[Rfam]
RNA sequence: UCAGCUUUUAAUCAAAUCCUGAGAGGUUUGGAAGGUUGUUUUUGGCUACGUAUAUCUUUGGAUACCUAUAUAUUCCAGGAUACGUAUAGCUCUCUGCAACCAUUUUGCAGAGAGCUUUUUUUA
Numbered sequence: 001u002c003a004g005c006u007u008u009u010a011a012u013c014a015a016a017u018c019c020u021g022a023g024a025g026g027u028u029u030g031g032a033a034g035g036u037u038g039u040u041u042u043u044g045g046c047u048a049c050g051u052a053u054a055u056c057u058u059u060g061g062a063u064a065c066c067u068a069u070a071u072a073u074u075c076c077a078g079g080a081u082a083c084g085u086a087u088a089g090c091u092c093u094c095u096g097c098a099a100c101c102a103u104u105u106u107g108c109a110g111a112g113a114g115c116u117u118u119u120u121u122u123a
Base pairs, nucleotide, nucleotide: 003037004036005035006034007033008032009031013030014029015028016027017026018025053082054081055080056079057078058077060075061074062073063072064071086118088116089115090114091113092112093111094110095109096108097107098106099105
This 123-nucleotide RNA sequence from Oceanobacillus iheyensis belongs to the Rfam family "PyrR binding site". Rfam 15.1 lists 1,498 matches to the family in 930 species. About the family: This family represents the PyrR binding site and terminator structure. This RNA structure is found upstream of a variety of genes involved in pyrimidine biosynthesis and transport. The alignment also includes a portion of the antiterminator structure. By type it is a cis-regulatory element.